The family of this 98-nucleotide sequence from Punica granatum is "Small nucleolar RNA Z161/Z228".
[Rfam]
RNA sequence: AAAUCAGAUGAUGAGCUAUGGAUUGAAAUCUCUCACGACGGUCAUCCGAGACACAUCCAAUGUUGCCACUGAUGCAUAAUCCAUUACUUCUGAUGAUU
Numbered sequence: 001a002a003a004u005c006a007g008a009u010g011a012u013g014a015g016c017u018a019u020g021g022a023u024u025g026a027a028a029u030c031u032c033u034c035a036c037g038a039c040g041g042u043c044a045u046c047c048g049a050g051a052c053a054c055a056u057c058c059a060a061u062g063u064u065g066c067c068a069c070u071g072a073u074g075c076a077u078a079a080u081c082c083a084u085u086a087c088u089u090c091u092g093a094u095g096a097u098u
Base pairs, nucleotide, nucleotide: 001098002097004095052062053061

For this family Rfam cites "The high diversity of snoRNAs in plants: identification and comparative study of 120 snoRNA genes from Oryza sativa" (Chen et al., Nucleic Acids Res, 2003). The match comes from Rfam's covariance-model search (49 bits). Lineage of the source: Eukaryota > Viridiplantae > Spermatophyta > Mesangiospermae > Punica.